[Rfam]
RNA sequence: UGUUUACAGCGUCAUGUUAUCGGUAUGCCACAUCAUGCUUGCAUGAAUGCGGCAUACCGAUGACAUGACGCGCCCCUCCAAUGAGGAAGGAGCGGGGCAGGGGCCCCGCGGAAUCCGAAUAGGAGGUCAGAUUGCGGGAAUGCGAAGCAUGGAGCAAUCUGAGUAAACA
Numbered sequence: 001u002g003u004u005u006a007c008a009g010c011g012u013c014a015u016g017u018u019a020u021c022g023g024u025a026u027g028c029c030a031c032a033u034c035a036u037g038c039u040u041g042c043a044u045g046a047a048u049g050c051g052g053c054a055u056a057c058c059g060a061u062g063a064c065a066u067g068a069c070g071c072g073c074c075c076c077u078c079c080a081a082u083g084a085g086g087a088a089g090g091a092g093c094g095g096g097g098c099a100g101g102g103g104c105c106c107c108g109c110g111g112a113a114u115c116c117g118a119a120u121a122g123g124a125g126g127u128c129a130g131a132u133u134g135c136g137g138g139a140a141u142g143c144g145a146a147g148c149a150u151g152g153a154g155c156a157a158u159c160u161g162a163g164u165a166a167a168c169a
Stems, first nucleotide, its partner, number of pairs: 001169007010070004017063013031049002033046005075126005081120002085116003092109007129160007140150004
RNA: Clostridiales-1 RNA